[Rfam]
A member of the RNA family "Small nucleolar RNA SNORD34" from Ovis aries, 77 nucleotides long. The match comes from Rfam's covariance-model search (40 bits). The family has 14 seed sequences and 1,319 matches in Rfam 15.1. snoRNA U34 is found in intron 5 of the ribosomal protein L13a gene in humans. The family is grouped with related families in Rfam's "SNORD34 clan". It is annotated as a C/D-box small nucleolar RNA.
RNA sequence: GGGCAUUAAUGAGGAUUUCAUGUGGUACUUUCUACAUUGUUUGAUUAACAUGCAAUAUCAUAACUCCUGAAAUGCCC
Numbered sequence: 001g002g003g004c005a006u007u008a009a010u011g012a013g014g015a016u017u018u019c020a021u022g023u024g025g026u027a028c029u030u031u032c033u034a035c036a037u038u039g040u041u042u043g044a045u046u047a048a049c050a051u052g053c054a055a056u057a058u059c060a061u062a063a064c065u066c067c068u069g070a071a072a073u074g075c076c077c
Stems, first nucleotide, its partner, number of pairs: 001077002004074004